[Rfam]
RNA sequence: AGAGGAGGCAUCCAAAGGGAUCGCAUUGAUCCCAAGCUUGCGGUAAUGAUCUCGCAGAAUUUUGGAUCAUGCUAUCCCUUUGGAUUCCUCCUU
Numbered sequence: 001a002g003a004g005g006a007g008g009c010a011u012c013c014a015a016a017g018g019g020a021u022c023g024c025a026u027u028g029a030u031c032c033c034a035a036g037c038u039u040g041c042g043g044u045a046a047u048g049a050u051c052u053c054g055c056a057g058a059a060u061u062u063u064g065g066a067u068c069a070u071g072c073u074a075u076c077c078c079u080u081u082g083g084a085u086u087c088c089u090c091c092u093u
Stems, first nucleotide, its partner, number of pairs: 002093005008087001010085012023072004028068005036061001